[Rfam]
RNA sequence: CGCCGCUGUCUUUCACCACGGAUCGUCCGGCACGUGCCUGCCGGUGGAGGAGAACAUGU
Numbered sequence: 001c002g003c004c005g006c007u008g009u010c011u012u013u014c015a016c017c018a019c020g021g022a023u024c025g026u027c028c029g030g031c032a033c034g035u036g037c038c039u040g041c042c043g044g045u046g047g048a049g050g051a052g053a054a055c056a057u058g059u
Stems, first nucleotide, its partner, number of pairs: 009051007027044006
msiK RNA: a 59-nucleotide RNA sequence from Leucobacter weissii.
Rfam classes the family as a cis-regulatory element.
Pairs were carried over by alignment from the consensus structure, which is taken from published work.
The match comes from Rfam's covariance-model search (55 bits).